[Rfam]
A member of the RNA family "Plastid-psbA-1 3UTR RNA" from Grubbia rosmarinifolia, 116 nucleotides long. The family's consensus secondary structure was predicted with LocARNA.
RNA sequence: UGUAGCUCCAUCUACAAAUGGAUAAGAUUUUAGUCUUAGUAUAUAUAAGUUCUUGAAAGUAAAGGAGCAAUAACCAAUUUCUUGUUUUAUCAAGAGGGUGGUAUUGCUCCUUUUUU
Dot-bracket structure: ......(((((......)))))......................................((((((((((((......(((((........))))).....))))))))))))...
Annotation
The sequence is in the family's curated seed alignment. Its Rfam clan is "Plastid-psbA 3UTR RNA clan".